[Rfam]
RNA sequence: GACUGACCAUGAAGUUAAAACACUAAAUCCCUGCCUGGGAUGUGUUUUAAUUGAUUUUAGUC
Numbered sequence: 001g002a003c004u005g006a007c008c009a010u011g012a013a014g015u016u017a018a019a020a021c022a023c024u025a026a027a028u029c030c031c032u033g034c035c036u037g038g039g040a041u042g043u044g045u046u047u048u049a050a051u052u053g054a055u056u057u058u059a060g061u062c
Base pairs, nucleotide, nucleotide: 005062014051015050016049017048018047019046020045021044022043023042029039030038031037